[Rfam]
RNA sequence: GCUUAGCUGAACUCGAACGGUUUCGAGGACAGGCUUCAAACCUGUUGACCAUUCAGUUGGUAGGAGUUCGACUCUCCCUGCUGAGC
Number, nucleotide and partner (000 for none) at each position: 001g086002c085003u084004u083005a082006g081007c080008u000009g078010a000011a000012c027013u026014c025015g024016a023017a022018c000019g000020g000021u000022u017023u016024c015025g014026a013027g012028g046029a045030c044031a043032g042033g041034c000035u000036u000037c000038a000039a000040a000041c033042c032043u031044g030045u029046u028047g000048a061049c060050c059051a058052u000053u000054c000055a000056g000057u000058u051059g050060g049061u048062a000063g077064g076065a075066g074067u000068u000069c000070g000071a000072c000073u000074c066075u065076c064077c063078c009079u000080g007081c006082u005083g004084a003085g002086c001